Shown here is a 102-nucleotide RNA sequence from Ligilactobacillus hayakitensis, a member of the family "S10-Clostridia ribosomal protein leader". The literature on the family includes a 2020 paper in BMC Microbiol by Eckert and Weinberg, "Discovery of 20 novel ribosomal leader candidates in bacteria and archaea".
RNA sequence: UUAAAGCAUUGAUGUGGAAGGUUGCGACACACCCGGCCGCUUUGCCACGAGUGGAUCGGUAAUUUCCACGGAGCUAGUCUUAUUUUCAAAAUAGACGAAGGA
Number, nucleotide and partner (000 for none) at each position: 001u000002u000003a000004a000005a000006g000007c000008a000009u000010u000011g000012a000013u000014g069015u068016g067017g000018a000019a065020g064021g063022u000023u000024g000025c058026g057027a056028c000029a000030c000031a000032c000033c000034c000035g000036g000037c000038c000039g000040c000041u000042u000043u000044g000045c000046c000047a000048c000049g000050a000051g000052u000053g000054g000055a000056u027057c026058g025059g000060u000061a000062a000063u021064u020065u019066c000067c016068a015069c014070g000071g000072a000073g000074c000075u000076a000077g000078u101079c100080u099081u098082a000083u000084u097085u000086u095087c094088a000089a000090a000091a000092u000093a000094g087095a086096c000097g084098a081099a080100g079101g078102a000